[Rfam]
Shown here is a 47-nucleotide RNA from bacterium K02(2017), a member of the family "Acido-Lenti-1 RNA".
By type it is a small RNA.
RNA sequence: CCGUGGAUUGAAAUCCACGGCUACUUUGUGGUGUCCCUAAAGGGACU
Numbered sequence: 001c002c003g004u005g006g007a008u009u010g011a012a013a014u015c016c017a018c019g020g021c022u023a024c025u026u027u028g029u030g031g032u033g034u035c036c037c038u039a040a041a042g043g044g045a046c047u
Stems, first nucleotide, its partner, number of pairs: 001020008033046005